[Rfam]
RNA sequence: GUCAACUACCCCGGCCUAAAGACCGAGGCUUGUGAAAGCAGGCCUGGUUGACCAGCCUAAGUUUUUCGAGAACUACGUUGCAGACAGGUUCAAGACCCACCUCGGAAUGCUUCCUCAGUUCCGAGCUCUGGAAGCCUCAGAAGCAGACAAGCAUUGGGUACGCACGAAACGGUCUGAGGCAAAAUGCCGGUCUGUUCAACAUUGGCGAGGGGA
Numbered sequence: 001g002u003c004a005a006c007u008a009c010c011c012c013g014g015c016c017u018a019a020a021g022a023c024c025g026a027g028g029c030u031u032g033u034g035a036a037a038g039c040a041g042g043c044c045u046g047g048u049u050g051a052c053c054a055g056c057c058u059a060a061g062u063u064u065u066u067c068g069a070g071a072a073c074u075a076c077g078u079u080g081c082a083g084a085c086a087g088g089u090u091c092a093a094g095a096c097c098c099a100c101c102u103c104g105g106a107a108u109g110c111u112u113c114c115u116c117a118g119u120u121c122c123g124a125g126c127u128c129u130g131g132a133a134g135c136c137u138c139a140g141a142a143g144c145a146g147a148c149a150a151g152c153a154u155u156g157g158g159u160a161c162g163c164a165c166g167a168a169a170c171g172g173u174c175u176g177a178g179g180c181a182a183a184a185u186g187c188c189g190g191u192c193u194g195u196u197c198a199a200c201a202u203u204g205g206c207g208a209g210g211g212g213a
Stems, first nucleotide, its partner, number of pairs: 001052008010028002012025002016021001029042004055206003059202001060074005077200004082195001085194005097131002101125008111213005134180008